RNA sequence: AGAGCCGGAACGGGAGAGCCCCCGACCACGCGUCGGGGCACCGAAGGAGCAAGCUCCCCGCCAAUCUCUCAGGUAAAGCUACCGUUCCAGCCAG
Number, nucleotide and partner (000 for none) at each position: 001a000002g000003a000004g000005c000006c000007g088008g087009a086010a085011c084012g083013g082014g000015a000016g000017a000018g000019c000020c038021c037022c036023c035024g034025a033026c000027c000028a000029c000030g000031c000032g000033u025034c024035g023036g022037g021038g020039c000040a074041c073042c072043g070044a069045a000046g000047g068048a067049g066050c000051a000052a000053g061054c060055u000056c000057c000058c000059c000060g054061c053062c000063a000064a000065u000066c049067u048068c047069u044070c043071a000072g042073g041074u040075a000076a000077a000078g000079c000080u000081a000082c013083c012084g011085u010086u009087c008088c007089a000090g000091c000092c000093a000094g000

The record is a 94-nucleotide sequence from Actinokineospora auranticolor, which matches "Glycine riboswitch aptamer" in Rfam. This family represents the bacterial glycine riboswitch. NCBI's taxonomy places the organism under Bacteria, Actinomycetota, Pseudonocardiales, Pseudonocardiaceae, Actinokineospora. Rfam links the family to the GO term glycine biosynthetic process.